[Rfam]
RNA sequence: AAACACGGCCGCGACUGGCGCAAAAAGGUGGAGCACCACCGGGGAGCGGCCCGGCGCACACCUGGCGCCGCAGCACCGCACACCUGCCGCGCGCCUGGGCGAUCGAG
Numbered sequence: 001a002a003a004c005a006c007g008g009c010c011g012c013g014a015c016u017g018g019c020g021c022a023a024a025a026a027g028g029u030g031g032a033g034c035a036c037c038a039c040c041g042g043g044g045a046g047c048g049g050c051c052c053g054g055c056g057c058a059c060a061c062c063u064g065g066c067g068c069c070g071c072a073g074c075a076c077c078g079c080a081c082a083c084c085u086g087c088c089g090c091g092c093g094c095c096u097g098g099g100c101g102a103u104c105g106a107g
Stems, first nucleotide, its partner, number of pairs: 004054001007051006015043002017095005028039004085101004
About this RNA
The record is a 107-nucleotide RNA from Streptomyces indicus, which matches "ZMP/ZTP riboswitch aptamer (pfl RNA motif)" in Rfam. The organism belongs to Streptomyces, within Bacteria. The family's consensus secondary structure is taken from published work.